Annotation
The record is a 150-nucleotide sequence from Zonotrichia albicollis, which matches "STAXI RNA" in Rfam. NCBI's taxonomy places the organism under Eukaryota, Chordata, Telluraves, Passeriformes, Zonotrichia. Rfam classes the family as a small RNA. A search with the family's covariance model found it, with a score of 41 bits. The family's consensus secondary structure is taken from published work.
[Rfam]
RNA sequence: UGGUGCCCUUGGGCAUUCCCCAAAUCCCCCAGGGGGGUGAAAUGGUUCCCUUGGGCAUUCCCCAAAUCCCCCAGAGGUGGAAAUGGUGCCCUUGGGCAUUCCCCAAAUCCGCCAGAGGGGUGGAAAUGGUGCCCUUGGGCAUUCCUCAAA
Numbered sequence: 001u002g003g004u005g006c007c008c009u010u011g012g013g014c015a016u017u018c019c020c021c022a023a024a025u026c027c028c029c030c031a032g033g034g035g036g037g038u039g040a041a042a043u044g045g046u047u048c049c050c051u052u053g054g055g056c057a058u059u060c061c062c063c064a065a066a067u068c069c070c071c072c073a074g075a076g077g078u079g080g081a082a083a084u085g086g087u088g089c090c091c092u093u094g095g096g097c098a099u100u101c102c103c104c105a106a107a108u109c110c111g112c113c114a115g116a117g118g119g120g121u122g123g124a125a126a127u128g129g130u131g132c133c134c135u136u137g138g139g140c141a142u143u144c145c146u147c148a149a150a
Stems, first nucleotide, its partner, number of pairs: 002017006028045002032061004037056001049055002069086002074104001076102002088097003109129003115147006131140003